This 79-nucleotide RNA sequence from Cercopithifilaria johnstoni belongs to the Rfam family "mir-250 microRNA precursor family".
[Rfam]
RNA sequence: UAAGCUUGAACCAUCAGUGGUCUUGUGAUCCGUUGAGAAAAUAUGAGCCGAAUCACAGCCAACUGGUGGUUCAGCUUGC
Numbered sequence: 001u002a003a004g005c006u007u008g009a010a011c012c013a014u015c016a017g018u019g020g021u022c023u024u025g026u027g028a029u030c031c032g033u034u035g036a037g038a039a040a041a042u043a044u045g046a047g048c049c050g051a052a053u054c055a056c057a058g059c060c061a062a063c064u065g066g067u068g069g070u071u072c073a074g075c076u077u078g079c
Stems, first nucleotide, its partner, number of pairs: 003077002006074003011069002014066005020060001022058002025056005031050002033047002